[Rfam]
Rfam assigns this 45-nucleotide RNA from Pontibacillus halophilus to the family "PreQ1 (pre queuosine) riboswitch aptamer".
A reference for the family is Klein et al. (2009), "Cocrystal structure of a class I preQ1 riboswitch reveals a pseudoknot recognizing an essential hypermodified nucleobase", Nat Struct Mol Biol.
Rfam 15.1 lists 873 matches to the family in 692 species.
The organism belongs to Pontibacillus halophilus, within Bacteria.
This family is a bacterial riboswitch that binds to the metabolite preQ1, an intermediate in the biosynthesis of the modified nucleoside queuosine from GTP. One example of this riboswitch is located in the leader of the Bacillus subtilis ykvJKLM (queCDEF) operon which encodes four genes necessary for queuosine production. PreQ1 binding to the riboswitch aptamer is thought to induce premature transcription termination within the leader to down-regulate expression of these genes.

RNA sequence: GCGGGAGAGGUUCUAGCGACACCCUCUAUAAAAAACUAAGGAUGU
Numbered sequence: 001g002c003g004g005g006a007g008a009g010g011u012u013c014u015a016g017c018g019a020c021a022c023c024c025u026c027u028a029u030a031a032a033a034a035a036c037u038a039a040g041g042a043u044g045u
Base pairs, nucleotide, nucleotide: 006027007026008025009024010023016037